Shown here is a 167-nucleotide RNA from Brucella abortus, a member of the family "Brucella sRNA CI27". Pairs were carried over by alignment from the consensus structure, which was predicted with RNAfold. The sequence is in the family's curated seed alignment. Rfam 15.1 lists 50 matches to the family in 21 species. A reference for the family is Dong et al. (2014), "Identification of novel sRNAs in Brucella abortus 2308", FEMS Microbiol Lett. The source organism's lineage runs through Bacteria, Pseudomonadati, Hyphomicrobiales, Brucella and Brucella abortus.
RNA sequence: GACGGAUUUAAAGCAUGUCUCCUCAAAGCGGGAACCGGUUUUGGGAUAAAGACAUGCACGAAAACAAAAGUUUAAAGCGUGUCGUGUGUGUAUGAUAACAAGCGACAUGCUUUAGGUUUAUUUUGCAGCGCCGGAUGUUUCCAUUUGGCUGCACAGUGUUUUUAGGG
Dot-bracket structure: ............((((((((.((((((((.(....).))))))))....))))))))..(((((((.((((((((((((((((((.(((........))).))))))))))))))))))....((((..((((((((....))))))))))))...)))))))....